[Rfam]
RNA sequence: UGCAUGCGUAGAGGUGCGAAUCUGCAUCAGUACCUUUCUGGAGAGCGGGGAUCGAGGAAAGAAAGGGAAAGGGCGAUUCGCCGAAGUGUGGGGGGAAACCCGUUCCCACCAUGCUGGUCUUUCGCCGAACAGGCGACGGACUGCUGCAACAGCUAGUUGUGGAGCGCUACCAUCGGA
Numbered sequence: 001u002g003c004a005u006g007c008g009u010a011g012a013g014g015u016g017c018g019a020a021u022c023u024g025c026a027u028c029a030g031u032a033c034c035u036u037u038c039u040g041g042a043g044a045g046c047g048g049g050g051a052u053c054g055a056g057g058a059a060a061g062a063a064a065g066g067g068a069a070a071g072g073g074c075g076a077u078u079c080g081c082c083g084a085a086g087u088g089u090g091g092g093g094g095g096a097a098a099c100c101c102g103u104u105c106c107c108a109c110c111a112u113g114c115u116g117g118u119c120u121u122u123c124g125c126c127g128a129a130c131a132g133g134c135g136a137c138g139g140a141c142u143g144c145u146g147c148a149a150c151a152g153c154u155a156g157u158u159g160u161g162g163a164g165c166g167c168u169a170c171c172a173u174c175g176g177a
Stems, first nucleotide, its partner, number of pairs: 008170004016081006023075003033066007085115007093107004116142005122136005144162007
A member of the RNA family "Lysine riboswitch aptamer" from Desmospora activa, 177 nucleotides long. Riboswitches are metabolite binding domains within certain messenger RNAs that serve as precision sensors for their corresponding targets. The source organism's lineage runs through Bacteria, Bacillati, Bacillota, Bacilli and Desmospora activa. It scores 111 bits against the family's covariance model.